Background: A member of the RNA family "tRNA", 71 nucleotides long.
RNA sequence: GCGGAUAUAGAUUAAAGGUAAAUUAUCUGCCUUCCAAGCAGAGGAUAUGGGUUCGAUUCCCGUUAUCCGCA
Numbered sequence: 001g002c003g004g005a006u007a008u009a010g011a012u013u014a015a016a017g018g019u020a021a022a023u024u025a026u027c028u029g030c031c032u033u034c035c036a037a038g039c040a041g042a043g044g045a046u047a048u049g050g051g052u053u054c055g056a057u058u059c060c061c062g063u064u065a066u067c068c069g070c071a
Stems, first nucleotide, its partner, number of pairs: 001070007010024004026042005047063005